[Rfam]
RNA sequence: AGGUAAUGUCUCCUGCACCUCUAUCACCGGAGGCACUCGGUCAUGCUGUGGGCCAGCGGCCUUAGACGUUCAUCGUCGAGGGCAUGACGUGAGGCGGGGUUCGAUGCCCC
Numbered sequence: 001a002g003g004u005a006a007u008g009u010c011u012c013c014u015g016c017a018c019c020u021c022u023a024u025c026a027c028c029g030g031a032g033g034c035a036c037u038c039g040g041u042c043a044u045g046c047u048g049u050g051g052g053c054c055a056g057c058g059g060c061c062u063u064a065g066a067c068g069u070u071c072a073u074c075g076u077c078g079a080g081g082g083c084a085u086g087a088c089g090u091g092a093g094g095c096g097g098g099g100u101u102c103g104a105u106g107c108c109c110c
Stems, first nucleotide, its partner, number of pairs: 001020004007035007036093004040088008050062005065077004096110005

Background:
The record is a 110-nucleotide RNA from Paenibacillus sp. D9, which matches "epsC RNA" in Rfam. A search with the family's covariance model found it, with a score of 104 bits. Rfam 15.1 lists 450 matches to the family in 334 species.